The record is a 102-nucleotide RNA from Carex littledalei, which matches "Small nucleolar RNA Z266" in Rfam. The literature on the family includes a 2003 paper in Nucleic Acids Res by Chen et al., "The high diversity of snoRNAs in plants: identification and comparative study of 120 snoRNA genes from Oryza sativa". Lineage of the source: Eukaryota > Streptophyta > Streptophytina > commelinids > Carex subgen. Euthyceras. The family's consensus secondary structure was predicted with PFOLD. By type it is a C/D-box small nucleolar RNA.
RNA sequence: AAAUGGCAGAAAUGAUGAAUCAAUUAGAUGCGCUAAGCUAUGUUAUAUAGCUUAUGAGCUUAAACCUGUGAGGCAUUUAACACAAUUCUGAUCCUGCUAAUA
Number, nucleotide and partner (000 for none) at each position: 001a000002a101003a000004u099005g098006g097007c096008a095009g094010a092011a000012a000013u000014g000015a000016u000017g000018a000019a000020u000021c000022a000023a000024u000025u000026a000027g000028a000029u000030g000031c000032g000033c000034u000035a000036a000037g000038c000039u000040a000041u000042g000043u000044u000045a000046u000047a000048u000049a000050g000051c000052u000053u000054a000055u000056g000057a000058g000059c000060u000061u000062a000063a000064a000065c000066c000067u000068g000069u000070g000071a000072g000073g000074c000075a000076u000077u000078u000079a000080a000081c000082a000083c000084a000085a000086u000087u000088c000089u000090g000091a000092u010093c000094c009095u008096g007097c006098u005099a004100a000101u002102a000